[Rfam]
RNA sequence: UGAGUCGGCCGGACGGCCGCGGCGUCUCGGCGUCGAGGAAAGUCCGGGCUCCGAAGGGCAAGGUGGUGGCUAACGGCCACCCGGGGCGACCCGCGGGACAGUGCCACAGAGAGCAGACCGCCGGUGCCUGGCGCCGGUAAGGGUGAAACGGUGGUGUAAGAGACCACCAGCGGGCCGGGUGACCGGUCCGGCUAGGUAAACCCCACCUGGAGCAAGUCCAGACAGUGCGCGUCACCAGGGCGGCCCGCCCGAGCGCACGGGUAGGACGCUAGAGGUCGUCGGUGACGGCGACCCCAGAUGGAUGGCCGUCGCGCGCCGCUCGCGGCGCGUCACAGGACCCGGCUUACAGGCCGGCUCAUCCC
Numbered sequence: 001u002g003a004g005u006c007g008g009c010c011g012g013a014c015g016g017c018c019g020c021g022g023c024g025u026c027u028c029g030g031c032g033u034c035g036a037g038g039a040a041a042g043u044c045c046g047g048g049c050u051c052c053g054a055a056g057g058g059c060a061a062g063g064u065g066g067u068g069g070c071u072a073a074c075g076g077c078c079a080c081c082c083g084g085g086g087c088g089a090c091c092c093g094c095g096g097g098a099c100a101g102u103g104c105c106a107c108a109g110a111g112a113g114c115a116g117a118c119c120g121c122c123g124g125u126g127c128c129u130g131g132c133g134c135c136g137g138u139a140a141g142g143g144u145g146a147a148a149c150g151g152u153g154g155u156g157u158a159a160g161a162g163a164c165c166a167c168c169a170g171c172g173g174g175c176c177g178g179g180u181g182a183c184c185g186g187u188c189c190g191g192c193u194a195g196g197u198a199a200a201c202c203c204c205a206c207c208u209g210g211a212g213c214a215a216g217u218c219c220a221g222a223c224a225g226u227g228c229g230c231g232u233c234a235c236c237a238g239g240g241c242g243g244c245c246c247g248c249c250c251g252a253g254c255g256c257a258c259g260g261g262u263a264g265g266a267c268g269c270u271a272g273a274g275g276u277c278g279u280c281g282g283u284g285a286c287g288g289c290g291a292c293c294c295c296a297g298a299u300g301g302a303u304g305g306c307c308g309u310c311g312c313g314c315g316c317c318g319c320u321c322g323c324g325g326c327g328c329g330u331c332a333c334a335g336g337a338c339c340c341g342g343c344u345u346a347c348a349g350g351c352c353g354g355c356u357c358a359u360c361c362c
Base pairs, nucleotide, nucleotide: 001358002357003356004355005354006353007352008351009350010349011347012310013309014308015307016306017305018304020035021034022033023032024031025030040345041344042343044342045341046340047339048338049212050211051210052209056246057245058244059243061208062207063206064205065204066080067079068078069077070076081095082093083092084091085090096203097202101201102200103197104196105195118142119141120138121137122136123135124134125133126132127131150168151167152166153165154164155163170192171190172189173188174187175186176185177184178183216267217266218265219264225258226257227256228255229254230253238250239249240248241247274293275292276291277290278289279288280287281286